[Rfam]
RNA sequence: AUGCUGUUGGAUGAUGAUAAAUUGAGUGAUCCAUCGACUGAAAAUAAGGAUGAGCUUUAAAGUACUGACAACAGCUU
Numbered sequence: 001a002u003g004c005u006g007u008u009g010g011a012u013g014a015u016g017a018u019a020a021a022u023u024g025a026g027u028g029a030u031c032c033a034u035c036g037a038c039u040g041a042a043a044a045u046a047a048g049g050a051u052g053a054g055c056u057u058u059a060a061a062g063u064a065c066u067g068a069c070a071a072c073a074g075c076u077u
Base pairs, nucleotide, nucleotide: 003075004074005073006072007071008070009066010065013031014030015029017027034053035052036051038049
Dot-bracket structure: ..((((((((..(((.(.........).)))..(((.(..........).)))...........))...))))))..
Notes:
The family of this 77-nucleotide RNA sequence from Scleropages formosus is "Small nucleolar RNA SNORD71". The literature on the family includes a 2001 paper in EMBO J by Huttenhofer et al., "RNomics: an experimental approach that identifies 201 candidates for novel, small, non-messenger RNAs in mouse". The family has 18 seed sequences and 556 matches in Rfam 15.1. From the family's description: snoRNA HBII-239 belongs to the family of C/D snoRNAs.It is the human orthologue of the mouse MBII-239 described and is predicted to guide 2'O-ribose methylation of 5.8S rRNA on residue U14. The family's consensus secondary structure was predicted with RNAalifold. A search with the family's covariance model found it, with a score of 36 bits.